A member of the RNA family "Small nucleolar RNA Z152/R70/R12/" from Panicum virgatum, 99 nucleotides long. NCBI's taxonomy places the organism under Eukaryota, Mesangiospermae, Liliopsida, Panicum, Panicum sect. Hiantes. The literature on the family includes a 2001 paper in J Mol Biol by Barneche et al., "Identification of 66 box C/D snoRNAs in Arabidopsis thaliana: extensive gene duplications generated multiple isoforms predicting new ribosomal RNA 2'-O-methylation sites". Gene Ontology terms of the family: RNA processing and nucleolus. Pairs were carried over by alignment from the consensus structure, which was predicted with PFOLD.
[Rfam]
RNA sequence: AAUGCGAUGAUGUGUUCAUAAAAGGUUGAGGCAGUGGUGGCCUCUUCAGUCACCGUGAGCCGUCAAACCAAAAAACGACUUCUCUUUCCACUGAGCAUU
Numbered sequence: 001a002a003u004g005c006g007a008u009g010a011u012g013u014g015u016u017c018a019u020a021a022a023a024g025g026u027u028g029a030g031g032c033a034g035u036g037g038u039g040g041c042c043u044c045u046u047c048a049g050u051c052a053c054c055g056u057g058a059g060c061c062g063u064c065a066a067a068c069c070a071a072a073a074a075a076c077g078a079c080u081u082c083u084c085u086u087u088c089c090a091c092u093g094a095g096c097a098u099u
Stems, first nucleotide, its partner, number of pairs: 001099005